FMN riboswitch aptamer (RFN element): a 183-nucleotide RNA from Paraburkholderia sediminicola.
RNA sequence: GUGCGUCUUCAGGGCGGGGCGAAAUUCCCCACCGGCGGUAUGCCGGCAGCGCGAAAGCGUGAGCCGGUGAGCCCGCGAGCGCCCGUGUCGUUCAGCUUUCAGCGUAUCGAAAGCGCAGCGGGGUCAGCAGAUCUGGUGAGAAGCCAGAGCCGACGGUUAGAGUCCGGAUGGAAGAAGAUGUGC
Numbered sequence: 001g002u003g004c005g006u007c008u009u010c011a012g013g014g015c016g017g018g019g020c021g022a023a024a025u026u027c028c029c030c031a032c033c034g035g036c037g038g039u040a041u042g043c044c045g046g047c048a049g050c051g052c053g054a055a056a057g058c059g060u061g062a063g064c065c066g067g068u069g070a071g072c073c074c075g076c077g078a079g080c081g082c083c084c085g086u087g088u089c090g091u092u093c094a095g096c097u098u099u100c101a102g103c104g105u106a107u108c109g110a111a112a113g114c115g116c117a118g119c120g121g122g123g124u125c126a127g128c129a130g131a132u133c134u135g136g137u138g139a140g141a142a143g144c145c146a147g148a149g150c151c152g153a154c155g156g157u158u159a160g161a162g163u164c165c166g167g168a169u170g171g172a173a174g175a176a177g178a179u180g181u182g183c
Base pairs, nucleotide, nucleotide: 003181004180005179006178007177008176009175010174017029018028019027031163032162033152034151035076036075037074038073071150072149079128080127132148133147134146135145136144154166155165156164